Overview: nhaA-I RNA: a 55-nucleotide RNA sequence from Bordetella ansorpii. Acidobacteria, Alphaproteobacteria, Betaproteobacteria and Gammaproteobacteria, Verrucomicrobia, cand. division NC10. A search with the family's covariance model found it, with a score of 52 bits. It is annotated as a riboswitch.

RNA sequence: GGGUGUCUGCUGCAUUCUGCGGCAGGCAGGUUCAUGCGUCGGUCGGGCCGCCACG
Numbered sequence: 001g002g003g004u005g006u007c008u009g010c011u012g013c014a015u016u017c018u019g020c021g022g023c024a025g026g027c028a029g030g031u032u033c034a035u036g037c038g039u040c041g042g043u044c045g046g047g048c049c050g051c052c053a054c055g
Stems, first nucleotide, its partner, number of pairs: 005027008037055003041052003